[Rfam]
RNA: Small nucleolar RNA Z107/R87
RNA sequence: GAUCGUAAUGAAGACUUGGAAAAUUCAAGCUCAACAGACCGUAUUUGCAGUCUUAUCAUCUUAUUGAUUUGUUUGCAUGUCGAUAUUCCCACUGAACUGAGUGAUC
Numbered sequence: 001g002a003u004c005g006u007a008a009u010g011a012a013g014a015c016u017u018g019g020a021a022a023a024u025u026c027a028a029g030c031u032c033a034a035c036a037g038a039c040c041g042u043a044u045u046u047g048c049a050g051u052c053u054u055a056u057c058a059u060c061u062u063a064u065u066g067a068u069u070u071g072u073u074u075g076c077a078u079g080u081c082g083a084u085a086u087u088c089c090c091a092c093u094g095a096a097c098u099g100a101g102u103g104a105u106c
Stems, first nucleotide, its partner, number of pairs: 001106006